Potassium channel RNA editing signal: a 114-nucleotide RNA sequence. The family's RNA type in Rfam is cis-regulatory element.
RNA sequence: CUUGGCUAUGGAGACAUGUACCCUCAGACAUGGUCUGGCAUGCUGGUGGGAGCGCUGUGUGCUCUGGCUGGUGUGCUGACUAUCGCCAUGCCAGUGCCUGUUAUUGUCAAUAAC
Numbered sequence: 001c002u003u004g005g006c007u008a009u010g011g012a013g014a015c016a017u018g019u020a021c022c023c024u025c026a027g028a029c030a031u032g033g034u035c036u037g038g039c040a041u042g043c044u045g046g047u048g049g050g051a052g053c054g055c056u057g058u059g060u061g062c063u064c065u066g067g068c069u070g071g072u073g074u075g076c077u078g079a080c081u082a083u084c085g086c087c088a089u090g091c092c093a094g095u096g097c098c099u100g101u102u103a104u105u106g107u108c109a110a111u112a113a114c
Base pairs, nucleotide, nucleotide: 002113004111008107009106010105011104013102014101015100016099018097019096020095021094037077038076039075040074049063050062
The base pairs follow the family's consensus structure, which is taken from published work. Rfam's curators put it in the seed alignment.